[Rfam]
RNA sequence: CAUCCCUAUGAUGAAUUAUUCAAAUUAAAAGUAGUGGCCUGAAAAUCACUUGAUGAAAAAAUGGAUUUUGAGGGAUG
Dot-bracket structure: ((((((.................................................................))))))
Numbered sequence: 001c002a003u004c005c006c007u008a009u010g011a012u013g014a015a016u017u018a019u020u021c022a023a024a025u026u027a028a029a030a031g032u033a034g035u036g037g038c039c040u041g042a043a044a045a046u047c048a049c050u051u052g053a054u055g056a057a058a059a060a061a062u063g064g065a066u067u068u069u070g071a072g073g074g075a076u077g
Stems, first nucleotide, its partner, number of pairs: 001077006

Description
Small nucleolar RNA R21: a 77-nucleotide RNA from Morus notabilis. The family has 6 seed sequences and 472 matches in Rfam 15.1. Its family is annotated with nucleolus and RNA processing in the Gene Ontology. The base pairs follow the family's consensus structure, which was predicted with PFOLD.